[Rfam]
RNA sequence: UGACCAUUUCCCGGACCCGCUCAGAUCUGCCGGGAAACCAAUAGCCAUGCGGACAGCUAGGUCAAAUGCCGA
Numbered sequence: 001u002g003a004c005c006a007u008u009u010c011c012c013g014g015a016c017c018c019g020c021u022c023a024g025a026u027c028u029g030c031c032g033g034g035a036a037a038c039c040a041a042u043a044g045c046c047a048u049g050c051g052g053a054c055a056g057c058u059a060g061g062u063c064a065a066a067u068g069c070c071g072a
Stems, first nucleotide, its partner, number of pairs: 001064005007037008
RNA: Streptococcus sRNA SpF59 (ldcC RNA)